[Rfam]
RNA sequence: CUCCCCGGCAAUGGGCAAAGAGACACCUUGUGGUGUUGUUCUUCUAUCAGUCAGGGGCAGAGGAGAUUACAGUCCUUUGUUCGUCUUAGCUUGAUGCCUGACUUGGUGACCAACACCAUCUUAUGCCUAGGAUACAUAA
Numbered sequence: 001c002u003c004c005c006c007g008g009c010a011a012u013g014g015g016c017a018a019a020g021a022g023a024c025a026c027c028u029u030g031u032g033g034u035g036u037u038g039u040u041c042u043u044c045u046a047u048c049a050g051u052c053a054g055g056g057g058c059a060g061a062g063g064a065g066a067u068u069a070c071a072g073u074c075c076u077u078u079g080u081u082c083g084u085c086u087u088a089g090c091u092u093g094a095u096g097c098c099u100g101a102c103u104u105g106g107u108g109a110c111c112a113a114c115a116c117c118a119u120c121u122u123a124u125g126c127c128u129a130g131g132a133u134a135c136a137u138a139a
Stems, first nucleotide, its partner, number of pairs: 003057004008052001012049003018043003022037006078134005093127001095125001099123003104118002107115002

A member of the RNA family "Small nucleolar RNA SNORA48" from Rattus norvegicus, 139 nucleotides long. It scores 61 bits against the family's covariance model. Rfam links the family to the GO terms RNA processing and nucleolus. Lineage of the source: Eukaryota > Amniota > Eutheria > Rodentia > Rattus. About the family: The snoRNA ACA 48 has been identified to guide pseudouridylation of the residue U3797 in the 28S rRNA subunit. The literature on the family includes a 1997 paper in J Mol Biol by Ofengand and Bakin, "Mapping to nucleotide resolution of pseudouridine residues in large subunit ribosomal RNAs from representative eukaryotes, prokaryotes, archaebacteria, mitochondria and chloroplasts". Clan: SNORA48 clan.